[Rfam]
RNA sequence: ACCGCAUACUUACCUACUAUAUAGUAGAUGAUAUACAUGUAUUUUGUCUACUAUAUAGUAGAUAAGUACACGGUAA
Numbered sequence: 001a002c003c004g005c006a007u008a009c010u011u012a013c014c015u016a017c018u019a020u021a022u023a024g025u026a027g028a029u030g031a032u033a034u035a036c037a038u039g040u041a042u043u044u045u046g047u048c049u050a051c052u053a054u055a056u057a058g059u060a061g062a063u064a065a066g067u068a069c070a071c072g073g074u075a076a
Base pairs, nucleotide, nucleotide: 001074002073003072004071007068008067009066010065011064012063014061015060017058018057019056020055021054022053023052024051025050026049027048029046030045031044033042034041035040